[Rfam]
RNA sequence: AACAUACUUGCUUUUAUGGAAAAAGUAAUUAUAAUUUAAAUUUAGUGUAAUUUAAUUUGACAGUGUAAAUAUAUUAUUUACAUUUGUAAAAUCAUUUAAAAUUCAAAGGGCAAAAGUAGUUUUUGCCCUUUAAUCAUCGUAUG
Dot-bracket structure: ...(((.((((((((.....)))))))).)))..............................((((((((.....)))))))).....................((((((.(((((...))))).))))))............
Numbered sequence: 001a002a003c004a005u006a007c008u009u010g011c012u013u014u015u016a017u018g019g020a021a022a023a024a025g026u027a028a029u030u031a032u033a034a035u036u037u038a039a040a041u042u043u044a045g046u047g048u049a050a051u052u053u054a055a056u057u058u059g060a061c062a063g064u065g066u067a068a069a070u071a072u073a074u075u076a077u078u079u080a081c082a083u084u085u086g087u088a089a090a091a092u093c094a095u096u097u098a099a100a101a102u103u104c105a106a107a108g109g110g111c112a113a114a115a116g117u118a119g120u121u122u123u124u125g126c127c128c129u130u131u132a133a134u135c136a137u138c139g140u141a142u143g
Stems, first nucleotide, its partner, number of pairs: 004032003008028008063083008105131006112124005